[Rfam]
RNA sequence: GGUCUCCAUUAGUGCAAACCCAAUCACUUGAAUUUAAGAUGAGAAGCAAUUCUCCAUUUGUAGUAAAUGGUUAUCCAUUAAGCGGAGCAAAUCUUGU
Numbered sequence: 001g002g003u004c005u006c007c008a009u010u011a012g013u014g015c016a017a018a019c020c021c022a023a024u025c026a027c028u029u030g031a032a033u034u035u036a037a038g039a040u041g042a043g044a045a046g047c048a049a050u051u052c053u054c055c056a057u058u059u060g061u062a063g064u065a066a067a068u069g070g071u072u073a074u075c076c077a078u079u080a081a082g083c084g085g086a087g088c089a090a091a092u093c094u095u096g097u
Base pairs, nucleotide, nucleotide: 009023010022012020052087053086054085055084056078057077060074061073062072063071064070

The family of this 97-nucleotide RNA sequence from Sesamum indicum is "Plastid-rps12 3UTR RNA". Rfam describes the family as follows. Plastid rpl20 is a non-coding RNA (ncRNA) recognised in plastids. It was found in the three prime untranslated region (3UTR) of rps12 gene, its 3UTR location sugest a role in transcript maduration. Pairs were carried over by alignment from the consensus structure, which was predicted with LocARNA. Lineage of the source: Eukaryota > Streptophytina > Mesangiospermae > Gunneridae > Sesamum. A reference for the family is Richter et al. (2023), "Retrograde signaling in plants: A critical review focusing on the GUN pathway and beyond", Plant Commun.